This 111-nucleotide sequence from Photobacterium damselae belongs to the Rfam family "Salmonella mgtC leader RNA".
[Rfam]
RNA sequence: CAAAUUCAGACAGGAGGAAUAUGUUGGACAGUCACCCUUACUUAAACAUCAAGGCAAGCUGACGCUAUUUUUUCUGCGCUGCUUGCCAACCGGCGGGCAGCAAUCUCCUCA
Numbered sequence: 001c002a003a004a005u006u007c008a009g010a011c012a013g014g015a016g017g018a019a020u021a022u023g024u025u026g027g028a029c030a031g032u033c034a035c036c037c038u039u040a041c042u043u044a045a046a047c048a049u050c051a052a053g054g055c056a057a058g059c060u061g062a063c064g065c066u067a068u069u070u071u072u073u074c075u076g077c078g079c080u081g082c083u084u085g086c087c088a089a090c091c092g093g094c095g096g097g098c099a100g101c102a103a104u105c106u107c108c109u110c111a
Base pairs, nucleotide, nucleotide: 004043013036014035064090066088092110093109095107096106097105
Rfam describes the family as follows. From mgtCBR operon, decreases flagellin production during infection by directly base pairing with mRNAs of the fljB gene encoding flagellin and promotes fljBA mRNA degradation. NCBI's taxonomy places the organism under Bacteria, Pseudomonadati, Photobacterium, Photobacterium damselae, Photobacterium damselae subsp. damselae. The family's RNA type in Rfam is cis-regulatory leader. Its family is annotated with regulation of gene expression in the Gene Ontology. On this family, see Choi et al., Proc Natl Acad Sci U S A 2017: "A trans-acting leader RNA from a Salmonella virulence gene".